Shown here is a 199-nucleotide RNA from Torulaspora delbrueckii, a member of the family "Small nucleolar RNA snR34". A search with the family's covariance model found it, with a score of 131 bits. Pairs were carried over by alignment from the consensus structure, which was predicted with WAR.
RNA sequence: GAAUCAAAAACAUUUAAUUUUCAGGAAACAAUGCCACAGUUAACUACCUAGUUUUCCAACGGUGGUAAAUUGCCAGUGUUUCAUUAUAAUGAGAUACCAGUUUCCAAGAACAAAUCUUAUUGACAGGAUAGGAAGUCCAUUGUCUGAGUGUCCUCAAUGAGGGCUAUAGGCUAGGGAUGUCGAAAGAUAGUCAACAUUU
Numbered sequence: 001g002a003a004u005c006a007a008a009a010a011c012a013u014u015u016a017a018u019u020u021u022c023a024g025g026a027a028a029c030a031a032u033g034c035c036a037c038a039g040u041u042a043a044c045u046a047c048c049u050a051g052u053u054u055u056c057c058a059a060c061g062g063u064g065g066u067a068a069a070u071u072g073c074c075a076g077u078g079u080u081u082c083a084u085u086a087u088a089a090u091g092a093g094a095u096a097c098c099a100g101u102u103u104c105c106a107a108g109a110a111c112a113a114a115u116c117u118u119a120u121u122g123a124c125a126g127g128a129u130a131g132g133a134a135g136u137c138c139a140u141u142g143u144c145u146g147a148g149u150g151u152c153c154u155c156a157a158u159g160a161g162g163g164c165u166a167u168a169g170g171c172u173a174g175g176g177a178u179g180u181c182g183a184a185a186g187a188u189a190g191u192c193a194a195c196a197u198u199u
Stems, first nucleotide, its partner, number of pairs: 024082004038071004043066004049062001051060002113191001115189001118187001135178004140173001142171004148167003152163003